Small nucleolar RNA snoR77: a 124-nucleotide RNA from Prunus persica. It scores 103 bits against the family's covariance model. The family has 5 seed sequences and 649 matches in Rfam 15.1. Pairs were carried over by alignment from the consensus structure, which was predicted with WAR. The family's RNA type in Rfam is H/ACA-box small nucleolar RNA.

RNA sequence: AGGCAGCCCCCUUGCGAUGACAAUGGCUUGGGAGGCGUUUAACUGCUCGUAAAUCGAAUUCUUUUGCUCUUCAGACUUGCUGAGAAUCUCUCUUUGAAGCUGGUCUAGUAAGCAUCAGUACACU
Numbered sequence: 001a002g003g004c005a006g007c008c009c010c011c012u013u014g015c016g017a018u019g020a021c022a023a024u025g026g027c028u029u030g031g032g033a034g035g036c037g038u039u040u041a042a043c044u045g046c047u048c049g050u051a052a053a054u055c056g057a058a059u060u061c062u063u064u065u066g067c068u069c070u071u072c073a074g075a076c077u078u079g080c081u082g083a084g085a086a087u088c089u090c091u092c093u094u095u096g097a098a099g100c101u102g103g104u105c106u107a108g109u110a111a112g113c114a115u116c117a118g119u120a121c122a123c124u
Base pairs, nucleotide, nucleotide: 002039003038004037007035008034009032010031011030014027015026017024061118062117066113067112068111073106074105075104076103077102079100080099081098084092085091